[Rfam]
Notes: Shown here is a 110-nucleotide RNA sequence from Mesorhabditis belari, a member of the family "SL2 RNA". It is annotated as a non-coding RNA gene. Gene Ontology term of the family: mRNA trans splicing, via spliceosome. The family's consensus secondary structure is taken from published work. This family represents SL2 RNA. SL2 RNA is involved in trans splicing in lower eukaryotes.

RNA sequence: GGUUUAUACCCAGUACAACAAGGUACGCUUGGGAAUCCGACCUGGAGUAAAAUCUGGUGUUGGGAACCGAUGAAUUUUUGAUAAGUCUGUCUGGAAUCCGAAGGACGAAA
Number, nucleotide and partner (000 for none) at each position: 001g000002g000003u000004u000005u000006a000007u000008a000009c032010c031011c000012a000013g028014u027015a000016c000017a024018a000019c000020a000021a000022g000023g000024u017025a000026c000027g014028c013029u000030u000031g010032g009033g000034a000035a000036u000037c000038c062039g061040a060041c059042c057043u056044g055045g054046a053047g000048u000049a000050a000051a000052a000053u046054c045055u044056g043057g042058u000059g041060u040061u039062g038063g000064g000065a000066a000067c000068c000069g000070a000071u000072g000073a000074a000075u000076u000077u000078u000079u000080g000081a000082u000083a000084a000085g000086u000087c000088u107089g106090u105091c104092u103093g099094g098095a000096a000097u000098c094099c093100g000101a000102a000103g092104g091105a090106c089107g088108a000109a000110a000